The family of this 81-nucleotide RNA from Rahnella aquatilis is "RybB RNA". For this family Rfam cites "Identification of novel small RNAs using comparative genomics and microarrays" (Wassarman et al., Genes Dev, 2001). It is annotated as a small RNA. A search with the family's covariance model found it, with a score of 82 bits. Pairs were carried over by alignment from the consensus structure, which was predicted with PFOLD. Rfam describes the family as follows. This ncRNA was identified in a large scale screen of E. coli. The function of this short RNA is unknown.
RNA sequence: ACUGCUUUUCUUUGAAGUCCCCAAAUUUGGAGAGCCCGUCAAUCCCGCCUCGUUAGGUUCAAGAUUGCCGGGUUUUUUCUU
Numbered sequence: 001a002c003u004g005c006u007u008u009u010c011u012u013u014g015a016a017g018u019c020c021c022c023a024a025a026u027u028u029g030g031a032g033a034g035c036c037c038g039u040c041a042a043u044c045c046c047g048c049c050u051c052g053u054u055a056g057g058u059u060c061a062a063g064a065u066u067g068c069c070g071g072g073u074u075u076u077u078u079c080u081u
Stems, first nucleotide, its partner, number of pairs: 033074006040067005